[Rfam]
RNA sequence: UUUUCAAUCUAGUAGCACAUAAAAUAAUACCAAAUAUAUUCUACAUUUUUGGUAUUACUUUAUGUGCUACUAGAUUGAAAA
Numbered sequence: 001u002u003u004u005c006a007a008u009c010u011a012g013u014a015g016c017a018c019a020u021a022a023a024a025u026a027a028u029a030c031c032a033a034a035u036a037u038a039u040u041c042u043a044c045a046u047u048u049u050u051g052g053u054a055u056u057a058c059u060u061u062a063u064g065u066g067c068u069a070c071u072a073g074a075u076u077g078a079a080a081a
Stems, first nucleotide, its partner, number of pairs: 001081003005077003010074001011071008023059001025057006
Rfam assigns this 81-nucleotide sequence from Diabrotica virgifera to the family "mir-16 microRNA precursor family". The source organism's lineage runs through Eukaryota, Panarthropoda, Dicondylia, Coleoptera and Diabrotica virgifera. The family is grouped with related families in Rfam's "mir-15 clan". A reference for the family is Calin et al. (2002), "Frequent deletions and down-regulation of micro- RNA genes miR15 and miR16 at 13q14 in chronic lymphocytic leukemia", Proc Natl Acad Sci U S A.